[Rfam]
RNA: ZMP/ZTP riboswitch aptamer (pfl RNA motif)
Organism: Humibacillus xanthopallidus
RNA sequence: CUGGUCGCACACGACUGGCGCAGGUGGGUGACCACCGGGGAGUGACGUCGGGAGCAUCGAACGCCUGGGUGCCUCGC
Numbered sequence: 001c002u003g004g005u006c007g008c009a010c011a012c013g014a015c016u017g018g019c020g021c022a023g024g025u026g027g028g029u030g031a032c033c034a035c036c037g038g039g040g041a042g043u044g045a046c047g048u049c050g051g052g053a054g055c056a057u058c059g060a061a062c063g064c065c066u067g068g069g070u071g072c073c074u075c076g077c
Stems, first nucleotide, its partner, number of pairs: 004046002010044003015039002017065004024035004054072005